[Rfam]
RNA sequence: CGGAUCAAUCGUGUUUAGGGAACUCGGCAAAAUGGCCCCGUACCUUUGGUAGAAGGGGUGCCUGCCUGGUGAUCAGGCAGGUCGCAGUGACCAGGGGGCUCUGACUGUCUAAUAACAACAUAGCUGACUGCAACUCCGUAAGGACUCGUAUAGUCGGUGAUUCCUGCCCAGUGCGAGUAUCUGAAAACUGGUUCCAACCGGACGAAGGACUCGUAAACGGCGGGGGUAACUAUGACCCUCUUAAGGUAGCGUAGUACCUUGUCGCUUAAUUGGCGACUUGCAUGAAUGGAUUAACAAGAGCCCUACUGUCCCAAACACGAAUCCGUUGAACCUUUUAUCCUGGUGCAGAGGCCAGGGA
Numbered sequence: 001c002g003g004a005u006c007a008a009u010c011g012u013g014u015u016u017a018g019g020g021a022a023c024u025c026g027g028c029a030a031a032a033u034g035g036c037c038c039c040g041u042a043c044c045u046u047u048g049g050u051a052g053a054a055g056g057g058g059u060g061c062c063u064g065c066c067u068g069g070u071g072a073u074c075a076g077g078c079a080g081g082u083c084g085c086a087g088u089g090a091c092c093a094g095g096g097g098g099c100u101c102u103g104a105c106u107g108u109c110u111a112a113u114a115a116c117a118a119c120a121u122a123g124c125u126g127a128c129u130g131c132a133a134c135u136c137c138g139u140a141a142g143g144a145c146u147c148g149u150a151u152a153g154u155c156g157g158u159g160a161u162u163c164c165u166g167c168c169c170a171g172u173g174c175g176a177g178u179a180u181c182u183g184a185a186a187a188c189u190g191g192u193u194c195c196a197a198c199c200g201g202a203c204g205a206a207g208g209a210c211u212c213g214u215a216a217a218c219g220g221c222g223g224g225g226g227u228a229a230c231u232a233u234g235a236c237c238c239u240c241u242u243a244a245g246g247u248a249g250c251g252u253a254g255u256a257c258c259u260u261g262u263c264g265c266u267u268a269a270u271u272g273g274c275g276a277c278u279u280g281c282a283u284g285a286a287u288g289g290a291u292u293a294a295c296a297a298g299a300g301c302c303c304u305a306c307u308g309u310c311c312c313a314a315a316c317a318c319g320a321a322u323c324c325g326u327u328g329a330a331c332c333u334u335u336u337a338u339c340c341u342g343g344u345g346c347a348g349a350g351g352c353c354a355g356g357g358a
Stems, first nucleotide, its partner, number of pairs: 001325004009320008018311003035059005044049001060082009083087001095304007102296002106120003123158008131148001135144003162290003166221003171218002173214005180209003188201004222240006241245001261277006339356005

Shown here is a 358-nucleotide part of an RNA from Methanofollis fontis, a member of the family "Archaeal large subunit ribosomal RNA". The organism belongs to Methanofollis, within Archaea.